[Rfam]
RNA sequence: GAGACAGCAUGAUAGCAUUUACUGAAAUUUUUAAAAGUACAUGCUUGAUGAACGUUUCUC
Numbered sequence: 001g002a003g004a005c006a007g008c009a010u011g012a013u014a015g016c017a018u019u020u021a022c023u024g025a026a027a028u029u030u031u032u033a034a035a036a037g038u039a040c041a042u043g044c045u046u047g048a049u050g051a052a053c054g055u056u057u058c059u060c
Stems, first nucleotide, its partner, number of pairs: 001060004014045005020039004028035002
The family of this 60-nucleotide RNA sequence from Actinia tenebrosa is "Selenocysteine insertion sequence 1". Rfam 15.1 lists 3,793 matches to the family in 721 species. Pairs were carried over by alignment from the consensus structure, which is taken from published work. The family's RNA type in Rfam is cis-regulatory element. NCBI's taxonomy places the organism under Eukaryota, Metazoa, Cnidaria, Actiniidae, Actinia.